Background: The record is an 89-nucleotide RNA sequence from Candidatus Symbiopectobacterium sp. Dall1.0, which matches "sRNA-Xcc1" in Rfam.
[Rfam]
RNA sequence: GGCCGGGUGGAGAGGCGUAAUACAAUACCCGCAAGGGGAAUAUGCCCGGAGUUGCUUUGUAGACUCAGUUGACACCUGGUCACCAGCUA
Dot-bracket structure: (((((((((....(((.((........(((....)))...)).)))..(((((........)))))......)))))))))........
Numbered sequence: 001g002g003c004c005g006g007g008u009g010g011a012g013a014g015g016c017g018u019a020a021u022a023c024a025a026u027a028c029c030c031g032c033a034a035g036g037g038g039a040a041u042a043u044g045c046c047c048g049g050a051g052u053u054g055c056u057u058u059g060u061a062g063a064c065u066c067a068g069u070u071g072a073c074a075c076c077u078g079g080u081c082a083c084c085a086g087c088u089a
Stems, first nucleotide, its partner, number of pairs: 001081009014046003018042002028037003049066005
It scores 62 bits against the family's covariance model.